[Rfam]
RNA sequence: UCGGCCACAAACACUCAAUCCUCCGUUGGCCGG
Dot-bracket structure: (((((((...((............)))))))))
RNA: Cardiovirus cis-acting replication element (CRE)
Organism: Cardiovirus theileri